[Rfam]
Background
Shown here is a 53-nucleotide sequence from Cynara cardunculus, a member of the family "Plastid-ccsA-ndhD-2 3UTR RNA". The match comes from Rfam's covariance-model search (58 bits). A reference for the family is Stern and Gruissem (1987), "Control of plastid gene expression: 3' inverted repeats act as mRNA processing and stabilizing elements, but do not terminate transcription", Cell. The organism belongs to Cynara cardunculus subsp. cardunculus, within Eukaryota. From the family's description: Plastid ccsA-ndhD-2 is a non-coding RNA (ncRNA) recognised in plastids. It was found in the three prime untranslated region (3UTR) of ccsA and ndhD genes, its 3UTR location suggests a role in transcript maturation.
RNA sequence: AUGGCGAGAACCAUGUGAAUCAAGGAGUGUAGUGAUUCACGCGGUUCUCGGGU
Numbered sequence: 001a002u003g004g005c006g007a008g009a010a011c012c013a014u015g016u017g018a019a020u021c022a023a024g025g026a027g028u029g030u031a032g033u034g035a036u037u038c039a040c041g042c043g044g045u046u047c048u049c050g051g052g053u
Stems, first nucleotide, its partner, number of pairs: 005050008014041009